[Rfam]
MIR535 microRNA precursor family: a 94-nucleotide RNA sequence from Camellia sinensis. Lineage of the source: Eukaryota > Streptophytina > eudicotyledons > Pentapetalae > Camellia. Gene Ontology terms of the family: miRNA-mediated post-transcriptional gene silencing and RISC complex.

RNA sequence: AGCAAAUCAUGACGACGAUAGACAGCACGCUUGUAUACAAUCAUGUCCACACAUGAAUGCUGACGAGCGUGCUCUCUCUCGUCGUCAAACAAUU
Numbered sequence: 001a002g003c004a005a006a007u008c009a010u011g012a013c014g015a016c017g018a019u020a021g022a023c024a025g026c027a028c029g030c031u032u033g034u035a036u037a038c039a040a041u042c043a044u045g046u047c048c049a050c051a052c053a054u055g056a057a058u059g060c061u062g063a064c065g066a067g068c069g070u071g072c073u074c075u076c077u078c079u080c081g082u083c084g085u086c087a088a089a090c091a092a093u094u
Stems, first nucleotide, its partner, number of pairs: 010087005016081002020077002025072010

Rfam 15.1 lists 544 matches to the family in 108 species.
On this family, see Zeng et al., Nucleic Acids Res 2010: "Conservation and divergence of microRNAs and their functions in Euphorbiaceous plants".